[Rfam]
RNA sequence: AAGAUGCCAGGGUCAAAAGCCUGAAACCACGAUGUGCUUGCACAGGAGUGGUUUUAUGGCUUAAUGACCCGCCCCGAUAUGAGCAUAAAAGUGGAGCGUAAGCUUCACGAUAUGCGAAUAUUGGAUAGAAUUGUGGGAGUACGAAGUACGGAACAAUUCGUAUGGCAUCUU
Numbered sequence: 001a002a003g004a005u006g007c008c009a010g011g012g013u014c015a016a017a018a019g020c021c022u023g024a025a026a027c028c029a030c031g032a033u034g035u036g037c038u039u040g041c042a043c044a045g046g047a048g049u050g051g052u053u054u055u056a057u058g059g060c061u062u063a064a065u066g067a068c069c070c071g072c073c074c075c076g077a078u079a080u081g082a083g084c085a086u087a088a089a090a091g092u093g094g095a096g097c098g099u100a101a102g103c104u105u106c107a108c109g110a111u112a113u114g115c116g117a118a119u120a121u122u123g124g125a126u127a128g129a130a131u132u133g134u135g136g137g138a139g140u141a142c143g144a145a146g147u148a149c150g151g152a153a154c155a156a157u158u159c160g161u162a163u164g165g166c167a168u169c170u171u
Stems, first nucleotide, its partner, number of pairs: 002170007012068004018061004024055003027051004033044004074124007083115004091108007128159007139149004

Clostridiales-1 RNA: a 171-nucleotide RNA sequence. The base pairs follow the family's consensus structure, which is taken from published work. The sequence is in the family's curated seed alignment. Rfam classes the family as a small RNA.